RNA sequence: GGGAUUGUGCAGUGUCAGUGUUCUCGCCAGUGAGGUUUACCCAAGAUGUGAUUAUUGCUGAUUGAAAACUUUUCCCACUACCCCACCAUGAUGACUUGAAAUAUAGUCAACAUUGGCAGUUUUUGACAGUCUUUAUGGAGA
Numbered sequence: 001g002g003g004a005u006u007g008u009g010c011a012g013u014g015u016c017a018g019u020g021u022u023c024u025c026g027c028c029a030g031u032g033a034g035g036u037u038u039a040c041c042c043a044a045g046a047u048g049u050g051a052u053u054a055u056u057g058c059u060g061a062u063u064g065a066a067a068a069c070u071u072u073u074c075c076c077a078c079u080a081c082c083c084c085a086c087c088a089u090g091a092u093g094a095c096u097u098g099a100a101a102u103a104u105a106g107u108c109a110a111c112a113u114u115g116g117c118a119g120u121u122u123u124u125g126a127c128a129g130u131c132u133u134u135a136u137g138g139a140g141a
Stems, first nucleotide, its partner, number of pairs: 020052003024048001026047001028045001034042002086116002088113003092109005130141004
About this RNA:
Shown here is a 141-nucleotide RNA sequence from Pan paniscus, a member of the family "U4 spliceosomal RNA". A search with the family's covariance model found it, with a score of 77 bits. The organism belongs to Pan, within Eukaryota. The family's RNA type in Rfam is spliceosomal small nuclear RNA. Rfam's curators write: U4 small nuclear RNA (U4 snRNA) is a component of the major U2-dependent spliceosome.